[Rfam]
RNA: Small nucleolar RNA SNORA40
Organism: Callorhinus ursinus
RNA sequence: AACACAAAUUGUUUUUGUUUGGUUUGUGGACAAAGACUUAGACAAGUGGGAAAAAUAAAUCCUUUUUUGUAAUCCAGAACUCACUGUUCAAGUAUGAGUUUUGGAUACAGAUAAGAAGGAAUAUG
Numbered sequence: 001a002a003c004a005c006a007a008a009u010u011g012u013u014u015u016u017g018u019u020u021g022g023u024u025u026g027u028g029g030a031c032a033a034a035g036a037c038u039u040a041g042a043c044a045a046g047u048g049g050g051a052a053a054a055a056u057a058a059a060u061c062c063u064u065u066u067u068u069g070u071a072a073u074c075c076a077g078a079a080c081u082c083a084c085u086g087u088u089c090a091a092g093u094a095u096g097a098g099u100u101u102u103g104g105a106u107a108c109a110g111a112u113a114a115g116a117a118g119g120a121a122u123a124u125g
Base pairs, nucleotide, nucleotide: 003048004047005046011037012036013035014034015033016032017031018030023028059122060121062119063118065116066115067114068113069112075103076102077101078100079099080098081097082096083095